The family of this 78-nucleotide RNA sequence from Anabarilius grahami is "Small nucleolar RNA SNORD24". The base pairs follow the family's consensus structure, which was predicted with PFOLD. A search with the family's covariance model found it, with a score of 42 bits.

RNA sequence: UGCUUAUGAUGACCCAAUUUGCUACUCUUGAGUUCAGGCUGAUGAAAUUGCAACCACCAAGAUAACUUAUCUGAAGCA
Numbered sequence: 001u002g003c004u005u006a007u008g009a010u011g012a013c014c015c016a017a018u019u020u021g022c023u024a025c026u027c028u029u030g031a032g033u034u035c036a037g038g039c040u041g042a043u044g045a046a047a048u049u050g051c052a053a054c055c056a057c058c059a060a061g062a063u064a065a066c067u068u069a070u071c072u073g074a075a076g077c078a
Stems, first nucleotide, its partner, number of pairs: 001078004

Rfam 15.1 lists 2,843 matches to the family in 1,188 species. A reference for the family is Qu et al. (1995), "U24, a novel intron-encoded small nucleolar RNA with two 12 nt long, phylogenetically conserved complementarities to 28S rRNA", Nucleic Acids Res.